[Rfam]
RNA sequence: CUUUCCCCAGGAGAUGAAAUUACUCUUUAUAACCGCCGCUCUGGCUGAUGAUGUCUACGUUCAU
Numbered sequence: 001c002u003u004u005c006c007c008c009a010g011g012a013g014a015u016g017a018a019a020u021u022a023c024u025c026u027u028u029a030u031a032a033c034c035g036c037c038g039c040u041c042u043g044g045c046u047g048a049u050g051a052u053g054u055c056u057a058c059g060u061u062c063a064u
Stems, first nucleotide, its partner, number of pairs: 010026004016055002019052003035045003
Fluoride riboswitch aptamer (crcB RNA motif): a 64-nucleotide RNA sequence from Sodalis glossinidius. The family has 289 seed sequences and 2,293 matches in Rfam 15.1.